[Rfam]
RNA sequence: UGUUUUGGUAGAGGUGCGACCUUAAAAGAGUACCAAUUGGGAGAAGAAUGAGCUUUGACGAUCAAUUGGGGAAGGGUGGGGUUGCCGAAGUGAAGCAAUCACUCAUAGGAGGCUUUGCUGGAUCCGUGGUUGAAUAAAUCCGGGUUUGUCACACAAGCGUGUGGAGGACUAUCCAAGCC
Numbered sequence: 001u002g003u004u005u006u007g008g009u010a011g012a013g014g015u016g017c018g019a020c021c022u023u024a025a026a027a028g029a030g031u032a033c034c035a036a037u038u039g040g041g042a043g044a045a046g047a048a049u050g051a052g053c054u055u056u057g058a059c060g061a062u063c064a065a066u067u068g069g070g071g072a073a074g075g076g077u078g079g080g081g082u083u084g085c086c087g088a089a090g091u092g093a094a095g096c097a098a099u100c101a102c103u104c105a106u107a108g109g110a111g112g113c114u115u116u117g118c119u120g121g122a123u124c125c126g127u128g129g130u131u132g133a134a135u136a137a138a139u140c141c142g143g144g145u146u147u148g149u150c151a152c153a154c155a156a157g158c159g160u161g162u163g164g165a166g167g168a169c170u171a172u173c174c175a176a177g178c179c
Stems, first nucleotide, its partner, number of pairs: 007173005016085009033069008089119008099109002120147007128140004149164006